The record is a 102-nucleotide sequence from Evansella cellulosilytica, which matches "Purine riboswitch aptamer" in Rfam. About the family: Riboswitches are metabolite binding domains within certain messenger RNAs that serve as precision sensors for their corresponding targets. Allosteric rearrangement of mRNA structure is mediated by ligand binding, and this results in modulation of gene expression. A class of riboswitches that selectively recognises guanine and becomes saturated at concentrations as low as 5 nM. In Bacillus subtilis, this mRNA motif is located on at least five separate transcriptional units that together encode 17 genes that are mostly involved in purine transport and purine nucleotide biosynthesis.
[Rfam]
RNA sequence: GUGAAUUCAAUAAUGAUGCCUCAUAUAUAUUUAGGAAUAAGGCCUAAGUGUUUCUACCAGGUAGCCGUAAACAACCUGACUAUGAAGGUAGACCUUUCUUAA
Number, nucleotide and partner (000 for none) at each position: 001g000002u000003g000004a000005a000006u000007u000008c000009a000010a000011u000012a000013a000014u000015g000016a000017u000018g000019c087020c000021u085022c084023a083024u082025a081026u000027a000028u000029a049030u048031u047032u046033a045034g044035g043036a000037a000038u000039a000040a000041g000042g000043c035044c034045u033046a032047a031048g030049u029050g000051u000052u000053u000054c000055u000056a000057c000058c078059a077060g076061g075062u074063a000064g072065c000066c000067g000068u000069a000070a000071a000072c064073a000074a062075c061076c060077u059078g058079a000080c000081u025082a024083u023084g022085a021086a000087g019088g000089u000090a000091g000092a000093c000094c000095u000096u000097u000098c000099u000100u000101a000102a000
Source information
The base pairs follow the family's consensus structure, which is taken from published work.